[Rfam]
RNA sequence: UAAAUAAAUAGAGGUUGCAGCUGACAAGAGUCACUAACCAAACCGGCGGGUAAUGCGGUUAGUAAAAGGGGAAGUUGCCGAAAUGAACGGAUGGCAGUCUUAGUUCGUUGGUCUACUGAUUAAGAGUCAGCAGACUGUCGCAAUAAUUUUAUACCAUUGCGGAGCGCUAUCGAUAGA
Numbered sequence: 001u002a003a004a005u006a007a008a009u010a011g012a013g014g015u016u017g018c019a020g021c022u023g024a025c026a027a028g029a030g031u032c033a034c035u036a037a038c039c040a041a042a043c044c045g046g047c048g049g050g051u052a053a054u055g056c057g058g059u060u061a062g063u064a065a066a067a068g069g070g071g072a073a074g075u076u077g078c079c080g081a082a083a084u085g086a087a088c089g090g091a092u093g094g095c096a097g098u099c100u101u102a103g104u105u106c107g108u109u110g111g112u113c114u115a116c117u118g119a120u121u122a123a124g125a126g127u128c129a130g131c132a133g134a135c136u137g138u139c140g141c142a143a144u145a146a147u148u149u150u151a152u153a154c155c156a157u158u159g160c161g162g163a164g165c166g167c168u169a170u171c172g173a174u175a176g177a
Stems, first nucleotide, its partner, number of pairs: 008170004017078006025070001033063007082109007090101002093098001110136005116130005138162007
About this RNA:
The family of this 177-nucleotide RNA sequence from Weissella halotolerans is "Lysine riboswitch aptamer". The source organism's lineage runs through Bacteria, Bacillati, Bacillota, Weissella and Weissella halotolerans. Its family is annotated with lysine biosynthetic process in the Gene Ontology. Pairs were carried over by alignment from the consensus structure, which is taken from published work. Rfam 15.1 lists 3,224 matches to the family in 1,923 species.